The family of this 215-nucleotide RNA from Rhodococcus rhodnii is "c-di-AMP riboswitch aptamer (ydaO/yuaA leader)". The organism belongs to Rhodococcus rhodnii, within Bacteria. Its family is annotated with regulation of gene expression and cyclic-di-AMP binding in the Gene Ontology.
RNA sequence: GAUUCCCGAACGUCGCAGUUCAGGGACGAGGACGGGGGACCCACCAGUCCCCGGAAAGCCGCGAGCAGCCGCUCACGGCGAUUUGGAGGACACCGGCCGGUCCCGCACCGGCCUCGGGGUGAAGCCAGACCCUCUCCCGCCAGGAGAGGUGAGGCCGAGCAGCCUCUCAGCUCGAACCCGACAGCUGACCUCGCAGGCGCGUGUGGAGAGGAUCU
Numbered sequence: 001g002a003u004u005c006c007c008g009a010a011c012g013u014c015g016c017a018g019u020u021c022a023g024g025g026a027c028g029a030g031g032a033c034g035g036g037g038g039a040c041c042c043a044c045c046a047g048u049c050c051c052c053g054g055a056a057a058g059c060c061g062c063g064a065g066c067a068g069c070c071g072c073u074c075a076c077g078g079c080g081a082u083u084u085g086g087a088g089g090a091c092a093c094c095g096g097c098c099g100g101u102c103c104c105g106c107a108c109c110g111g112c113c114u115c116g117g118g119g120u121g122a123a124g125c126c127a128g129a130c131c132c133u134c135u136c137c138c139g140c141c142a143g144g145a146g147a148g149g150u151g152a153g154g155c156c157g158a159g160c161a162g163c164c165u166c167u168c169a170g171c172u173c174g175a176a177c178c179c180g181a182c183a184g185c186u187g188a189c190c191u192c193g194c195a196g197g198c199g200c201g202u203g204u205g206g207a208g209a210g211g212a213u214c215u
Base pairs, nucleotide, nucleotide: 004199006197007196011031013029014028015027033193034192035191036190037189042116117179118178119177125154126153157173158172159171160170